[Rfam]
DUF2693 RNA: a 204-nucleotide RNA sequence. By type it is a small RNA.
RNA sequence: GAUCAUUGACAUACUGACAAGGCUAAAAAACAAAGAGAUAACUAACGUAGAGAGGCUCUAAGCCCUCUACACGUGACUAACAAUACAGCUUGCAAGUCUAGACCUAACGUGCUAGACGUUGAACCAGCAAAAGCGGUGAAGCCCUCGCAGGGUGAUGAACGCAGAGGCUGGCAACCUCGCCCCUCGUAAAGGGCUUGCAAGCAC
Numbered sequence: 001g002a003u004c005a006u007u008g009a010c011a012u013a014c015u016g017a018c019a020a021g022g023c024u025a026a027a028a029a030a031c032a033a034a035g036a037g038a039u040a041a042c043u044a045a046c047g048u049a050g051a052g053a054g055g056c057u058c059u060a061a062g063c064c065c066u067c068u069a070c071a072c073g074u075g076a077c078u079a080a081c082a083a084u085a086c087a088g089c090u091u092g093c094a095a096g097u098c099u100a101g102a103c104c105u106a107a108c109g110u111g112c113u114a115g116a117c118g119u120u121g122a123a124c125c126a127g128c129a130a131a132a133g134c135g136g137u138g139a140a141g142c143c144c145u146c147g148c149a150g151g152g153u154g155a156u157g158a159a160c161g162c163a164g165a166g167g168c169u170g171g172c173a174a175c176c177u178c179g180c181c182c183c184u185c186g187u188a189a190a191g192g193g194c195u196u197g198c199a200a201g202c203a204c
Stems, first nucleotide, its partner, number of pairs: 049068004054063001088202008096117006124171005179194004